Rfam assigns this 326-nucleotide RNA sequence from Campylobacter massiliensis to the family "Bacterial RNase P class A". From the family's description: Ribonuclease P (RNase P) is a ubiquitous endoribonuclease, found in archaea, bacteria and eukarya as well as chloroplasts and mitochondria. A search with the family's covariance model found it, with a score of 263 bits.
[Rfam]
RNA sequence: AAGGUAUGGCAAGUGAUUGCUUUUGCGUAGGCAAAAGAGGAAAGUCCGAGCUGCAAUAAGACGGAGUUCCAUCUAACGGAUGGCUGGGGCGACCCAAGGGACAGUGUAACAGAAAGCAGACUGCCGCUUAGGCGGUAAAGGUGAAACGGCGGGGUAAGAGCCCACCAGCGCGGCGUGCAAGCGCGGCGGCUAUAUAAACCCAACUCGCAGCAAGAAGGGAUGGUUUUGAGUCUUAUGUCAAACCCUUCGCUAGAGCCAAAUUGUAAAAUUUGGAGUAGAUAAAUAAUCACUCACGACAGAACUCGGCUUAUCGCCAUGCCUUUUUA
Dot-bracket structure: ((((((((((((((((((.(((((((....)))))))....[[[.[[[[[((((.........((((((((((.....)))))(((((....)))).)((...(((((............(((((((....)))))..)).......((.(((.......))).)).((((.((((....)))).))).)..)))..)))))))))))))...((((.....((((.............)))).)))).......(((((((....)))))))...........)))))))..........]]]]]]]].).))))))))))....